RNA sequence: UCAGAUAAUAGAGGUUGCAGAUGACAUUAGUAAGUUAAUGGAGUGCCUGUUAGACGUUGAAGUUAACUGAAAGGGGAGUUUGCCGAAAUUCAUUGUUGGAUAACAGUUAACAAUGGGUUGGGACGUAAUUUAAGAGGUUACGGACUGUCGCAAAUGUUUGCGGAGCGCUAUUAUUCAA
Numbered sequence: 001u002c003a004g005a006u007a008a009u010a011g012a013g014g015u016u017g018c019a020g021a022u023g024a025c026a027u028u029a030g031u032a033a034g035u036u037a038a039u040g041g042a043g044u045g046c047c048u049g050u051u052a053g054a055c056g057u058u059g060a061a062g063u064u065a066a067c068u069g070a071a072a073g074g075g076g077a078g079u080u081u082g083c084c085g086a087a088a089u090u091c092a093u094u095g096u097u098g099g100a101u102a103a104c105a106g107u108u109a110a111c112a113a114u115g116g117g118u119u120g121g122g123a124c125g126u127a128a129u130u131u132a133a134g135a136g137g138u139u140a141c142g143g144a145c146u147g148u149c150g151c152a153a154a155u156g157u158u159u160g161c162g163g164a165g166c167g168c169u170a171u172u173a174u175u176c177a178a
Stems, first nucleotide, its partner, number of pairs: 006173006017083006025075001033068007087119012120146002124142007148163006
Shown here is a 178-nucleotide sequence from Ligilactobacillus araffinosus, a member of the family "Lysine riboswitch aptamer". It scores 116 bits against the family's covariance model. From the family's description: Riboswitches are metabolite binding domains within certain messenger RNAs that serve as precision sensors for their corresponding targets.